[Rfam]
This 71-nucleotide RNA from Drosophila virilis belongs to the Rfam family "mir-263 microRNA precursor family". Rfam 15.1 lists 368 matches to the family in 211 species. Rfam's curators put it in the seed alignment. Rfam links the family to the GO terms miRNA-mediated post-transcriptional gene silencing and RISC complex.
RNA sequence: UUCAUCUUGGCACUGGGAGAAUUCACAGUCGAUUACAUAAUAUUCUGUGGUUCUGCGGGUGCCAAAAUGUA
Numbered sequence: 001u002u003c004a005u006c007u008u009g010g011c012a013c014u015g016g017g018a019g020a021a022u023u024c025a026c027a028g029u030c031g032a033u034u035a036c037a038u039a040a041u042a043u044u045c046u047g048u049g050g051u052u053c054u055g056c057g058g059g060u061g062c063c064a065a066a067a068u069g070u071a
Stems, first nucleotide, its partner, number of pairs: 001071001003069002007065006014058001016056001017054001019053003023050006